RNA: SAM riboswitch aptamer (S box leader)
Organism: Heyndrickxia coagulans
RNA sequence: GCCUUAUCAAGAGAGGCGGAGGGACUUGGCCCGAUGAAACCUCAGCAACCAGCCCAUACGGCACGGUGCUAAAUCCAACAGGUAUACCUGAAAAGAUAAGGA
Numbered sequence: 001g002c003c004u005u006a007u008c009a010a011g012a013g014a015g016g017c018g019g020a021g022g023g024a025c026u027u028g029g030c031c032c033g034a035u036g037a038a039a040c041c042u043c044a045g046c047a048a049c050c051a052g053c054c055c056a057u058a059c060g061g062c063a064c065g066g067u068g069c070u071a072a073a074u075c076c077a078a079c080a081g082g083u084a085u086a087c088c089u090g091a092a093a094a095g096a097u098a099a100g101g102a
Stems, first nucleotide, its partner, number of pairs: 002101007013043004021032003026078004044070004049066002052062003074093001079090004